A member of the RNA family "t44 RNA" from Rhodanobacter sp. MP7CTX1, 128 nucleotides long. The base pairs follow the family's consensus structure, which was predicted with LocARNA. It is annotated as a small RNA. It scores 58 bits against the family's covariance model. NCBI's taxonomy places the organism under Bacteria, Gammaproteobacteria, Lysobacterales, Rhodanobacteraceae, Rhodanobacter.
[Rfam]
RNA sequence: ACAACGCCCAACCAACGCCACACACGUAUCGGCACCGCCUUCGGGGUGCUGCGACUCGCCCAUCACGCAGUUCAAUGACUGCACCGGGCAAGCCGCGGUCGAAGCCGGGGAUGCGUGGAGGUCCCAAC
Numbered sequence: 001a002c003a004a005c006g007c008c009c010a011a012c013c014a015a016c017g018c019c020a021c022a023c024a025c026g027u028a029u030c031g032g033c034a035c036c037g038c039c040u041u042c043g044g045g046g047u048g049c050u051g052c053g054a055c056u057c058g059c060c061c062a063u064c065a066c067g068c069a070g071u072u073c074a075a076u077g078a079c080u081g082c083a084c085c086g087g088g089c090a091a092g093c094c095g096c097g098g099u100c101g102a103a104g105c106c107g108g109g110g111a112u113g114c115g116u117g118g119a120g121g122u123c124c125c126a127a128c
Stems, first nucleotide, its partner, number of pairs: 023117008035108003039104005048099005